[Rfam]
RNA sequence: AAAGAAAAAACCCUGCCGAAGCAGGGCCCCUCUUACACUAGUAUGACUAGCAAGAAGGCAAAGGGAGAGGAGAAACCGGAGGAAGAACUUAUGGGGAAACGUAAGUCUUCUCCGCGG
Numbered sequence: 001a002a003a004g005a006a007a008a009a010a011c012c013c014u015g016c017c018g019a020a021g022c023a024g025g026g027c028c029c030c031u032c033u034u035a036c037a038c039u040a041g042u043a044u045g046a047c048u049a050g051c052a053a054g055a056a057g058g059c060a061a062a063g064g065g066a067g068a069g070g071a072g073a074a075a076c077c078g079g080a081g082g083a084a085g086a087a088c089u090u091a092u093g094g095g096g097a098a099a100c101g102u103a104a105g106u107c108u109u110c111u112c113c114g115c116g117g
Stems, first nucleotide, its partner, number of pairs: 011026006027065003031061001038050004077114004082110004087106005